[Rfam]
RNA sequence: ACCGUUGAAAUCCGCCGCCCCCGGUCCUAUAUCUGGGCUGUCCGGCAACGGACUAUGGACAUAAACGCGCUCGUAAUAAGCGGAUCGGACCCGGGGGCGGUACCCGGCGGCUCCACCAAAUCACCCGUCGUUGGAGGGAUCUGGGGCCGAAACAGGAUCGACGGACGUCUAAAGGGGUUUGCUUUGUCCCGGUGAGUUACCACCGUUAUCGGUACGCUAAGCAUAAUUGCCAACGACAAUCGUGCUCCGGUCGCUCUGGCUGCGUAAGCAGUCCGAAAGACCGAUCUUUAAGUCCUAGGCUCUAGCAAGUCUGGGCGGGGUUCGCAGGCACCUGGCAACAGAAGCCUGCAUU
Numbered sequence: 001a002c003c004g005u006u007g008a009a010a011u012c013c014g015c016c017g018c019c020c021c022c023g024g025u026c027c028u029a030u031a032u033c034u035g036g037g038c039u040g041u042c043c044g045g046c047a048a049c050g051g052a053c054u055a056u057g058g059a060c061a062u063a064a065a066c067g068c069g070c071u072c073g074u075a076a077u078a079a080g081c082g083g084a085u086c087g088g089a090c091c092c093g094g095g096g097g098c099g100g101u102a103c104c105c106g107g108c109g110g111c112u113c114c115a116c117c118a119a120a121u122c123a124c125c126c127g128u129c130g131u132u133g134g135a136g137g138g139a140u141c142u143g144g145g146g147c148c149g150a151a152a153c154a155g156g157a158u159c160g161a162c163g164g165a166c167g168u169c170u171a172a173a174g175g176g177g178u179u180u181g182c183u184u185u186g187u188c189c190c191g192g193u194g195a196g197u198u199a200c201c202a203c204c205g206u207u208a209u210c211g212g213u214a215c216g217c218u219a220a221g222c223a224u225a226a227u228u229g230c231c232a233a234c235g236a237c238a239a240u241c242g243u244g245c246u247c248c249g250g251u252c253g254c255u256c257u258g259g260c261u262g263c264g265u266a267a268g269c270a271g272u273c274c275g276a277a278a279g280a281c282c283g284a285u286c287u288u289u290a291a292g293u294c295c296u297a298g299g300c301u302c303u304a305g306c307a308a309g310u311c312u313g314g315g316c317g318g319g320g321u322u323c324g325c326a327g328g329c330a331c332c333u334g335g336c337a338a339c340a341g342a343a344g345c346c347u348g349c350a351u352u
Base pairs, nucleotide, nucleotide: 040053041052042051043050044049057189058188059187060186061185067182068181069178070177071176072175081167082166085164086163087162091107092106093105094104095103108149109148110147111146112145113144114143190205191204192203193202196215197214199213200212201211318333319332320331321330324349325348326347327346328345329344